This 115-nucleotide RNA sequence from Trifolium medium belongs to the Rfam family "MIR2593 microRNA precursor family". A search with the family's covariance model found it, with a score of 106 bits. The family's consensus secondary structure was predicted with RNAalifold.

RNA sequence: UUAUAUGAAAAAGUUUGCUUUUUAGGUUCAUUGAAUGAUUGAUGUAUCUGGUCGAUGAUAUAGACUAGAUACAUCAAUCAUUCAAUGAACCUAAAAAGCAAACUUUUUCUUAUUA
Numbered sequence: 001u002u003a004u005a006u007g008a009a010a011a012a013g014u015u016u017g018c019u020u021u022u023u024a025g026g027u028u029c030a031u032u033g034a035a036u037g038a039u040u041g042a043u044g045u046a047u048c049u050g051g052u053c054g055a056u057g058a059u060a061u062a063g064a065c066u067a068g069a070u071a072c073a074u075c076a077a078u079c080a081u082u083c084a085a086u087g088a089a090c091c092u093a094a095a096a097a098g099c100a101a102a103c104u105u106u107u108u109c110u111u112a113u114u115a
Base pairs, nucleotide, nucleotide: 003113004112005111007109009107010106011105012104013103015101016100017099018098019097020096021095022094023093024092025091027089028088029087030086031085032084033083034082035081036080037079038078039077040076041075042074043073044072049067050066051065052064
Annotation
Lineage of the source: Eukaryota > Spermatophyta > Gunneridae > Fabales > Trifolium.